[Rfam]
RNA sequence: AGAGGUUGCAAGUGCAAAGCCACAGCAGAAGUGCUCACGGUGCAGCCUUGUCAGAUUCCAACAAAUCUGUAAUUUCUGCU
Numbered sequence: 001a002g003a004g005g006u007u008g009c010a011a012g013u014g015c016a017a018a019g020c021c022a023c024a025g026c027a028g029a030a031g032u033g034c035u036c037a038c039g040g041u042g043c044a045g046c047c048u049u050g051u052c053a054g055a056u057u058c059c060a061a062c063a064a065a066u067c068u069g070u071a072a073u074u075u076c077u078g079c080u
Base pairs, nucleotide, nucleotide: 014047019046020045024080025079026078027077028076029075030074031043032042033041052069053068054067055066056065057064
Mammalian CPEB3 ribozyme: an 80-nucleotide RNA from Alligator sinensis.
Taxonomically the source falls in Alligator (Eukaryota, Gnathostomata, Archelosauria, Alligatoridae).
The base pairs follow the family's consensus structure, which is taken from published work.